[Rfam]
RNA sequence: CGGGAGUGCAUUGUAGUUGCAUUGCACUUUCAUUUCAUUGUGCAAUAUCACUACAAGGCAAUUCUCG
Numbered sequence: 001c002g003g004g005a006g007u008g009c010a011u012u013g014u015a016g017u018u019g020c021a022u023u024g025c026a027c028u029u030u031c032a033u034u035u036c037a038u039u040g041u042g043c044a045a046u047a048u049c050a051c052u053a054c055a056a057g058g059c060a061a062u063u064c065u066c067g
Stems, first nucleotide, its partner, number of pairs: 001067004006063001007060003011056006019048001021046007
RNA: mir-33 microRNA precursor family